[Rfam]
Shown here is a 362-nucleotide RNA sequence from Cudoniella acicularis, a member of the family "Group I catalytic intron". The source organism's lineage runs through Eukaryota, Ascomycota, Pezizomycotina, sordariomyceta and Cudoniella. Pairs were carried over by alignment from the consensus structure, which is taken from published work. Group I catalytic introns are large self-splicing ribozymes. They catalyse their own excision from mRNA, tRNA and rRNA precursors in a wide range of organisms. The core secondary structure consists of 9 paired regions (P1-P9). These fold to essentially two domains - the P4-P6 domain (formed from the stacking of P5, P4, P6 and P6a helices) and the P3-P9 domain (formed from the P8, P3, P7 and P9 helices).
RNA sequence: CAAAAAAGGUAGAGUAAACCUCUGCCUAGUCAUAUUUUCAAUAUGGCAAAACCUUCAAAUUGCGGGAAAGUCUUAAAGACAAAUCUACCAAGUUAAUACAGUAAUGUGAUUAAUGGAACAGGUAAUGACUCGUUGUACGGUAAAAACGAUUUGUAUGAAGAAAUGAAAUAGAUCAUCCGCAGCCAAACACCAUCCACUAAAUAAAUGGAUGGUGCGCAGUUCAUCGACUAAAUGUAGGUUGGUGAAUAAUUAUAUACGAUUAUACUUCUUUAUUCUUUUUUUUAUUAAAAAAAAGUUUCGAAGAAAAUAUUGGAUAAAAAUUAUUUGCUUAAGAUAUAGUCAGGCAUAACCUAAAAGUUAUG
Number, nucleotide and partner (000 for none) at each position: 001c000002a000003a000004a000005a000006a000007a021008g020009g019010u000011a000012g000013a000014g000015u000016a000017a000018a000019c009020c008021u007022c000023u000024g000025c000026c000027u000028a000029g000030u000031c000032a000033u000034a000035u000036u000037u000038u000039c000040a000041a000042u000043a000044u000045g000046g000047c000048a000049a000050a240051a239052c238053c237054u236055u000056c234057a233058a000059a000060u000061u181062g180063c179064g178065g177066g176067a000068a000069a000070g000071u172072c171073u170074u000075a000076a000077a000078g000079a000080c000081a000082a000083a000084u000085c000086u000087a000088c000089c000090a000091a000092g000093u000094u000095a000096a000097u000098a000099c000100a000101g000102u000103a000104a000105u000106g000107u000108g000109a000110u000111u000112a000113a000114u000115g000116g000117a000118a000119c000120a000121g000122g000123u000124a000125a000126u000127g000128a000129c000130u000131c000132g000133u000134u000135g000136u000137a000138c000139g000140g000141u000142a000143a000144a000145a000146a000147c000148g000149a000150u000151u000152u000153g000154u000155a000156u000157g000158a000159a000160g000161a000162a000163a000164u000165g000166a000167a000168a000169u000170a073171g072172a071173u000174c000175a000176u066177c065178c064179g063180c062181a061182g220183c219184c000185a000186a000187a000188c214189a213190c212191c000192a000193u000194c000195c208196a000197c000198u000199a000200a000201a000202u000203a000204a000205a000206u000207g000208g195209a000210u000211g000212g190213u189214g188215c000216g000217c000218a000219g183220u182221u000222c000223a000224u342225c000226g341227a340228c339229u338230a337231a000232a000233u057234g056235u000236a054237g053238g052239u051240u050241g000242g328243u327244g326245a325246a324247u323248a322249a321250u320251u000252a000253u000254a000255u000256a000257c000258g000259a000260u000261u000262a000263u000264a000265c000266u000267u000268c000269u000270u000271u000272a000273u000274u000275c000276u000277u000278u000279u000280u000281u000282u000283u000284a000285u000286u000287a000288a000289a000290a000291a000292a000293a000294a000295g000296u000297u000298u000299c000300g000301a000302a000303g000304a000305a000306a000307a000308u000309a000310u000311u000312g000313g000314a000315u000316a000317a000318a000319a000320a250321u249322u248323a247324u246325u245326u244327g243328c242329u000330u000331a000332a000333g000334a000335u000336a000337u230338a229339g228340u227341c226342a224343g000344g000345c000346a000347u360348a359349a358350c357351c000352u000353a000354a000355a000356a000357g350358u349359u348360a347361u000362g000